A member of the RNA family "Lysine riboswitch aptamer" from Thalassotalea piscium, 198 nucleotides long. NCBI's taxonomy places the organism under Bacteria, Pseudomonadati, Pseudomonadota, Gammaproteobacteria, Thalassotalea.
[Rfam]
RNA sequence: AGCACCAGAAGAGGUGCGUUAGCCAGGUAGUUUUCGAGAGGAGCCACAACUCCAAUGAAUGAAAAUGAGGGGGACUAACGCCGAGGGCAACAAAGCUUGUGGAGACGAGUUGCUCGGUCGCUAAGGUUGAAUCCUUAGGAUUGUCACCGCGGUUCAACUUUUAAAUUGAGUCGCAUAGGGUGGAGAGCUUCUGGCUGA
Dot-bracket structure: .....((((((....(((((((.(.....(((((((.......................)))))))......).)))))))...(((((((....(.......)....)))))))((((.((((((......)))))))))).(((((..............................)))))....)))))).....
Numbered sequence: 001a002g003c004a005c006c007a008g009a010a011g012a013g014g015u016g017c018g019u020u021a022g023c024c025a026g027g028u029a030g031u032u033u034u035c036g037a038g039a040g041g042a043g044c045c046a047c048a049a050c051u052c053c054a055a056u057g058a059a060u061g062a063a064a065a066u067g068a069g070g071g072g073g074a075c076u077a078a079c080g081c082c083g084a085g086g087g088c089a090a091c092a093a094a095g096c097u098u099g100u101g102g103a104g105a106c107g108a109g110u111u112g113c114u115c116g117g118u119c120g121c122u123a124a125g126g127u128u129g130a131a132u133c134c135u136u137a138g139g140a141u142u143g144u145c146a147c148c149g150c151g152g153u154u155c156a157a158c159u160u161u162u163a164a165a166u167u168g169a170g171u172c173g174c175a176u177a178g179g180g181u182g183g184a185g186a187g188c189u190u191c192u193g194g195c196u197g198a
Stems, first nucleotide, its partner, number of pairs: 006193006016081007024073001030066007085115007096104001116142004121138006144183005